[Rfam]
RNA sequence: CGUGGAGAAAGCUGACUUGGCUGGUGUGGUGCAGAGACACUGGCUUGUUUAUGUGCUUAUUCUAUG
Numbered sequence: 001c002g003u004g005g006a007g008a009a010a011g012c013u014g015a016c017u018u019g020g021c022u023g024g025u026g027u028g029g030u031g032c033a034g035a036g037a038c039a040c041u042g043g044c045u046u047g048u049u050u051a052u053g054u055g056c057u058u059a060u061u062c063u064a065u066g
Stems, first nucleotide, its partner, number of pairs: 001066007009058004014049003019045007026032002
Record summary
The family of this 66-nucleotide RNA sequence from Aotus nancymaae is "MAT2A 3'UTR stem loop F". The family's RNA type in Rfam is cis-regulatory element. A search with the family's covariance model found it, with a score of 71 bits. The family's consensus secondary structure is taken from published work. The organism belongs to Aotus, within Eukaryota.